This 417-nucleotide RNA from Loxodonta africana belongs to the Rfam family "Small Cajal body-specific RNA 2". The literature on the family includes a 2004 paper in Curr Biol by Tycowski et al., "Guide RNAs with 5' caps and novel box C/D snoRNA-like domains for modification of snRNAs in metazoa". It is annotated as a small Cajal body RNA. Pairs were carried over by alignment from the consensus structure, which is taken from published work. Its family is annotated with RNA processing and nucleolus in the Gene Ontology. NCBI's taxonomy places the organism under Eukaryota, Deuterostomia, Chordata, Sarcopterygii, Loxodonta.
[Rfam]
RNA sequence: GCUUCUUUACGGGAGAGAGGCAUGGGGUGAGGUUUGAAUGGAGUUAUGCUGUGUCGCGUGAAAGGCGCGUGCGUGUCGAGUGUGUGAGUGGAUGCGCGAGUGCUAGUGGGCGCGCGUGGAGAGUGCAAGAGGAGUGCGUGCACCCGCUCCUGCGCCCCUCUUCCCGCCUACACCUUGAUCUUAUUUGAUCGGGUCGUGACCCCAGCCCCGCCGGGCCAACCCGAAAUGAAAAGAUCCCCUCCUGCGAAGCCCCUCGGGGCGCUGUGCGGCGAGGCCCUUUGGGCGGCGGUAGCGCUGCGGUCCCCGAGGUCCCGGAGCCGGUCCGAGGGGGCCCGGCGCUCAGAAAUGAUGAACUGAUCAGAUAGACGAGGCUGGGCUUGUCCCGGGCCGCUGAUUAUCGAGGCGAUUCUGAUCUGA
Numbered sequence: 001g002c003u004u005c006u007u008u009a010c011g012g013g014a015g016a017g018a019g020g021c022a023u024g025g026g027g028u029g030a031g032g033u034u035u036g037a038a039u040g041g042a043g044u045u046a047u048g049c050u051g052u053g054u055c056g057c058g059u060g061a062a063a064g065g066c067g068c069g070u071g072c073g074u075g076u077c078g079a080g081u082g083u084g085u086g087a088g089u090g091g092a093u094g095c096g097c098g099a100g101u102g103c104u105a106g107u108g109g110g111c112g113c114g115c116g117u118g119g120a121g122a123g124u125g126c127a128a129g130a131g132g133a134g135u136g137c138g139u140g141c142a143c144c145c146g147c148u149c150c151u152g153c154g155c156c157c158c159u160c161u162u163c164c165c166g167c168c169u170a171c172a173c174c175u176u177g178a179u180c181u182u183a184u185u186u187g188a189u190c191g192g193g194u195c196g197u198g199a200c201c202c203c204a205g206c207c208c209c210g211c212c213g214g215g216c217c218a219a220c221c222c223g224a225a226a227u228g229a230a231a232a233g234a235u236c237c238c239c240u241c242c243u244g245c246g247a248a249g250c251c252c253c254u255c256g257g258g259g260c261g262c263u264g265u266g267c268g269g270c271g272a273g274g275c276c277c278u279u280u281g282g283g284c285g286g287c288g289g290u291a292g293c294g295c296u297g298c299g300g301u302c303c304c305c306g307a308g309g310u311c312c313c314g315g316a317g318c319c320g321g322u323c324c325g326a327g328g329g330g331g332c333c334c335g336g337c338g339c340u341c342a343g344a345a346a347u348g349a350u351g352a353a354c355u356g357a358u359c360a361g362a363u364a365g366a367c368g369a370g371g372c373u374g375g376g377c378u379u380g381u382c383c384c385g386g387g388c389c390g391c392u393g394a395u396u397a398u399c400g401a402g403g404c405g406a407u408u409c410u411g412a413u414c415u416g417a
Base pairs, nucleotide, nucleotide: 051155052154053153054152055071056070057069058068059067060066090103094101095100106143107142108141111138112137113136114135115134117132184232185231186230189224190223191222192221194219196217198216201215202214203213205211206210252309253308254307255306256305257304258303259302261301262300263299266298267297269295270294271293274290275289276288277286278285317337318336319335320334321333322331323330324329341416342415343414344413351409352408353407355405356404370389371388372387373386375384376383